[Rfam]
RNA sequence: CUUGGCCGAGCCCAGCCACAGCGGCCUGUCCCGGUCCUGGCCGUAGGUGGCCAGCACGGAGUGCGCCUC
Numbered sequence: 001c002u003u004g005g006c007c008g009a010g011c012c013c014a015g016c017c018a019c020a021g022c023g024g025c026c027u028g029u030c031c032c033g034g035u036c037c038u039g040g041c042c043g044u045a046g047g048u049g050g051c052c053a054g055c056a057c058g059g060a061g062u063g064c065g066c067c068u069c
Stems, first nucleotide, its partner, number of pairs: 015025003031065001032059001037054003041050003
The family of this 69-nucleotide RNA sequence from Kutzneria viridogrisea is "ASpks TB sRNA". The base pairs follow the family's consensus structure, which is taken from published work. By type it is an antisense RNA. The match comes from Rfam's covariance-model search (61 bits).